[Rfam]
RNA sequence: GUGCACUUGAUACUAGCCAAGAUAUCCACUCACUGUCUUUUGUCAGGCGUGUGUCAUGGUAUCUGGGUCUCAUGAGUGCCACAUUAUUCAAGCCAUAAGCAUUUAAGCUCAGUGUGCAAAGAAACGCUCUGGGUUAUUACUUAUGGUACAAAU
Numbered sequence: 001g002u003g004c005a006c007u008u009g010a011u012a013c014u015a016g017c018c019a020a021g022a023u024a025u026c027c028a029c030u031c032a033c034u035g036u037c038u039u040u041u042g043u044c045a046g047g048c049g050u051g052u053g054u055c056a057u058g059g060u061a062u063c064u065g066g067g068u069c070u071c072a073u074g075a076g077u078g079c080c081a082c083a084u085u086a087u088u089c090a091a092g093c094c095a096u097a098a099g100c101a102u103u104u105a106a107g108c109u110c111a112g113u114g115u116g117c118a119a120a121g122a123a124a125c126g127c128u129c130u131g132g133g134u135u136a137u138u139a140c141u142u143a144u145g146g147u148a149c150a151a152a153u
Stems, first nucleotide, its partner, number of pairs: 003079006016068003020064007027053003031049001033046001035044001037042001092147003112127004130143005
The family of this 153-nucleotide RNA sequence from Hymenochirus boettgeri is "Small Cajal body specific RNA 1". For this family Rfam cites "Cajal body-specific small nuclear RNAs: a novel class of 2'-O-methylation and pseudouridylation guide RNAs" (Darzacq et al., EMBO J, 2002). It scores 79 bits against the family's covariance model. Rfam describes the family as follows. scaRNAs are a specific class of small nuclear RNAs which localise to the Cajal bodies and guide the modification of RNA polymerase II transcribed spliceosomal RNAs U1, U2, U4, U5 and U12. ACA35 belong to the H/ACA box class of guide RNAs as it has the predicted hairpin-hinge-hairpin-tail structure, conserved H/ACA-box motifs and is found associated with GAR1.